[Rfam]
RNA sequence: AGUUUUGCACAGUGGCAGUACCGUAGCCAAUGAGAUUUAUCCAAGACGCGAUUAUUGCUAAUUGAAAAUUUUCCCAAUACCCCACCAUGAUGACUUGAAAUAUAAUCAGCACUGGCAAUUUUUGACACUCUCUACGGAGA
Number, nucleotide and partner (000 for none) at each position: 001a000002g000003u000004u000005u000006u000007g000008c000009a000010c000011a000012g000013u000014g000015g000016c000017a000018g000019u000020a052021c000022c050023g049024u048025a000026g047027c000028c045029a000030a000031u000032g000033a000034g042035a000036u000037u000038u000039a000040u000041c000042c034043a000044a000045g028046a000047c026048g024049c023050g022051a000052u020053u000054a000055u000056u000057g000058c000059u000060a000061a000062u000063u000064g000065a000066a000067a000068a000069u000070u000071u000072u000073c000074c000075c000076a000077a000078u000079a000080c000081c000082c000083c000084a000085c115086c114087a000088u111089g110090a000091u108092g107093a106094c000095u104096u102097g101098a000099a000100a000101u097102a096103u000104a095105a000106u093107c092108a091109g000110c089111a088112c000113u000114g086115g085116c000117a000118a000119u000120u000121u000122u000123u000124g000125a000126c000127a000128c000129u140130c139131u138132c137133u000134a000135c000136g000137g132138a131139g130140a129
Source information: This 140-nucleotide RNA sequence belongs to the Rfam family "U4 spliceosomal RNA". The family's RNA type in Rfam is spliceosomal small nuclear RNA. Clan: U4 clan. The family has 177 seed sequences and 32,178 matches in Rfam 15.1. The sequence is in the family's curated seed alignment. The family's consensus secondary structure is taken from published work. U4 small nuclear RNA (U4 snRNA) is a component of the major U2-dependent spliceosome.